[Rfam]
RNA sequence: GAGAUAUGAUGAGCAACAUAUUGGUCCGUGUUUCUGAAUAAACCGUGACUGAAUUACCAUAUUAGCACACUCUGAUCUC
Numbered sequence: 001g002a003g004a005u006a007u008g009a010u011g012a013g014c015a016a017c018a019u020a021u022u023g024g025u026c027c028g029u030g031u032u033u034c035u036g037a038a039u040a041a042a043c044c045g046u047g048a049c050u051g052a053a054u055u056a057c058c059a060u061a062u063u064a065g066c067a068c069a070c071u072c073u074g075a076u077c078u079c
Stems, first nucleotide, its partner, number of pairs: 001079004
RNA: Small nucleolar RNA SNORD18
Organism: Momordica charantia